[Rfam]
RNA sequence: UAGCGCGUCAUCUGGGGAGUAGCCAGCCGUUCCGAUUGCCGGAACGGGCCAUACGUCAACAUAUUUGGCCGAGAGGUCAUGGCGUAUGGGAAGCAGCCAAAGGCUGCAUC
Numbered sequence: 001u002a003g004c005g006c007g008u009c010a011u012c013u014g015g016g017g018a019g020u021a022g023c024c025a026g027c028c029g030u031u032c033c034g035a036u037u038g039c040c041g042g043a044a045c046g047g048g049c050c051a052u053a054c055g056u057c058a059a060c061a062u063a064u065u066u067g068g069c070c071g072a073g074a075g076g077u078c079a080u081g082g083c084g085u086a087u088g089g090g091a092a093g094c095a096g097c098c099a100a101a102g103g104c105u106g107c108a109u110c
Base pairs, nucleotide, nucleotide: 027047028046029045030044031043049089050088051087052086053085054084055083056082057081058080066079067078068077069076070075
Dot-bracket structure: ..........................(((((...........))))).((((((((((.......(((((....))))))))))))))).....................